[Rfam]
RNA sequence: AGCCUAUGAUGGUUUCAAUAUAAGAGUAGUGGACAGAAGUGAUUUCUGAAAACUCAUUGCUGAGGCU
Numbered sequence: 001a002g003c004c005u006a007u008g009a010u011g012g013u014u015u016c017a018a019u020a021u022a023a024g025a026g027u028a029g030u031g032g033a034c035a036g037a038a039g040u041g042a043u044u045u046c047u048g049a050a051a052a053c054u055c056a057u058u059g060c061u062g063a064g065g066c067u
Stems, first nucleotide, its partner, number of pairs: 001067004
RNA: Small nucleolar RNA SNORD75
Organism: Chloroceryle aenea